Iron response element II: a 31-nucleotide RNA sequence from Aotus nancymaae. Rfam 15.1 lists 5,197 matches to the family in 722 species. The family's consensus secondary structure is taken from published work. The match comes from Rfam's covariance-model search (33 bits). Rfam links the family to the GO term response to iron ion. Taxonomically the source falls in Aotus (Eukaryota, Chordata, Dipnotetrapodomorpha, Mammalia). Rfam's curators write: IRE, TFRC, SLC40A1, SDHB, SLC11A2, CDC42BPA, ACO2, ALAS2_H.SAPIENS, CDC14A, EPAS1, ALAS2, qoxD, Hao1, NDUFS1, transferrin, Aconitate.
[Rfam]
RNA sequence: AAGUCAUCAUCAGCAGUGGCUGAUACGAUUC
Numbered sequence: 001a002a003g004u005c006a007u008c009a010u011c012a013g014c015a016g017u018g019g020c021u022g023a024u025a026c027g028a029u030u031c
Base pairs, nucleotide, nucleotide: 002030003029004028005027007025009024010023011022012021013020014018